[Rfam]
RNA sequence: AGAUGAUGACGAUUUCAACAAUGAAAGGUUUUACUCGUCGUAAUCGGUUGUUAUUCAGCCGCCGUUGCCGCCAUCCUAUCAUAUCACCACCUAUUUUCCGAGUCC
Numbered sequence: 001a002g003a004u005g006a007u008g009a010c011g012a013u014u015u016c017a018a019c020a021a022u023g024a025a026a027g028g029u030u031u032u033a034c035u036c037g038u039c040g041u042a043a044u045c046g047g048u049u050g051u052u053a054u055u056c057a058g059c060c061g062c063c064g065u066u067g068c069c070g071c072c073a074u075c076c077u078a079u080c081a082u083a084u085c086a087c088c089a090c091c092u093a094u095u096u097u098c099c100g101a102g103u104c105c
Stems, first nucleotide, its partner, number of pairs: 002104003049064001050060001
A member of the RNA family "Small nucleolar RNA Z43" from Gossypium mustelinum, 105 nucleotides long. Pairs were carried over by alignment from the consensus structure, which was predicted with PFOLD. Gene Ontology terms of the family: RNA processing and nucleolus.